[Rfam]
RNA sequence: CCCACCUGAGGGUGCCUAUAUACUGGACAGGGUCCAGAUGGCCCUAAAGGAUUCCUCGACUCUAACCUGAAAAGGCGAGCCUGAGAUGACAGGGUGGUUUUUAUGGAUGUCUUUUGUCCACCCGUUCACGUCCUCCGCAAUUCUUGCUACAAGAUGGAGAGAUUACAAAAACUGGUCCUUGUU
Numbered sequence: 001c002c003c004a005c006c007u008g009a010g011g012g013u014g015c016c017u018a019u020a021u022a023c024u025g026g027a028c029a030g031g032g033u034c035c036a037g038a039u040g041g042c043c044c045u046a047a048a049g050g051a052u053u054c055c056u057c058g059a060c061u062c063u064a065a066c067c068u069g070a071a072a073a074g075g076c077g078a079g080c081c082u083g084a085g086a087u088g089a090c091a092g093g094g095u096g097g098u099u100u101u102u103a104u105g106g107a108u109g110u111c112u113u114u115u116g117u118c119c120a121c122c123c124g125u126u127c128a129c130g131u132c133c134u135c136c137g138c139a140a141u142u143c144u145u146g147c148u149a150c151a152a153g154a155u156g157g158a159g160a161g162a163u164u165a166c167a168a169a170a171a172c173u174g175g176u177c178c179u180u181g182u183u
Stems, first nucleotide, its partner, number of pairs: 007047001009045004015041002053089002055085004060079002066077001068073001106177003109172002112170006131162002133159004142154004
RNA: Ascomycota telomerase RNA, nucleotides 1042 to 1224
Organism: Fusarium solani